[Rfam]
RNA sequence: GAAGGAUGGUGGCCCUUCGGAGUCGUCCUGCGGGGGAAGGCUUCAAACCGCCCACUGCCGCAUUGGCUGAAGACCGUUGUGGUAAGCGAUGUGGGAAAAGGUGUCGUAAGAGGCAUCAGGU
Numbered sequence: 001g002a003a004g005g006a007u008g009g010u011g012g013c014c015c016u017u018c019g020g021a022g023u024c025g026u027c028c029u030g031c032g033g034g035g036g037a038a039g040g041c042u043u044c045a046a047a048c049c050g051c052c053c054a055c056u057g058c059c060g061c062a063u064u065g066g067c068u069g070a071a072g073a074c075c076g077u078u079g080u081g082g083u084a085a086g087c088g089a090u091g092u093g094g095g096a097a098a099a100g101g102u103g104u105c106g107u108a109a110g111a112g113g114c115a116u117c118a119g120g121u
Stems, first nucleotide, its partner, number of pairs: 001018005019044006026037004049120001051095005056089001057083002060080003064076003100117006
RNA: Group II catalytic intron D1-D4-2